Background: This 68-nucleotide RNA from Phascolarctos cinereus belongs to the Rfam family "Small nucleolar RNA SNORD30". It is annotated as a C/D-box small nucleolar RNA. The base pairs follow the family's consensus structure. It scores 41 bits against the family's covariance model. Rfam 15.1 lists 367 matches to the family in 268 species.
RNA sequence: UGACAUGAUGCAUUCAUAGAAUCUCGUUCGUCUGAAUCCCCCUGUUGAGAUGUGCAUAUCUGACAAGG
Numbered sequence: 001u002g003a004c005a006u007g008a009u010g011c012a013u014u015c016a017u018a019g020a021a022u023c024u025c026g027u028u029c030g031u032c033u034g035a036a037u038c039c040c041c042c043u044g045u046u047g048a049g050a051u052g053u054g055c056a057u058a059u060c061u062g063a064c065a066a067g068g
Stems, first nucleotide, its partner, number of pairs: 022050005029044002
Dot-bracket structure: .....................(((((..((............)).)))))..................